[Rfam]
RNA sequence: GGGGCAUAAUGAGGAUUUCUUAUUAGUCUGAAGUUUGGUUGAUUGAUAUAUAACCUCCUACUCAUUCUGA
Numbered sequence: 001g002g003g004g005c006a007u008a009a010u011g012a013g014g015a016u017u018u019c020u021u022a023u024u025a026g027u028c029u030g031a032a033g034u035u036u037g038g039u040u041g042a043u044u045g046a047u048a049u050a051u052a053a054c055c056u057c058c059u060a061c062u063c064a065u066u067c068u069g070a
Base pairs, nucleotide, nucleotide: 006065007064009062026047027046
The record is a 70-nucleotide RNA from Salvia splendens, which matches "Small nucleolar RNA Z105" in Rfam.
It is annotated as a C/D-box small nucleolar RNA.
Taxonomically the source falls in core Calosphace (Eukaryota, Gunneridae, Lamiaceae, Mentheae).
It scores 49 bits against the family's covariance model.
The base pairs follow the family's consensus structure, which was predicted with CMfinder.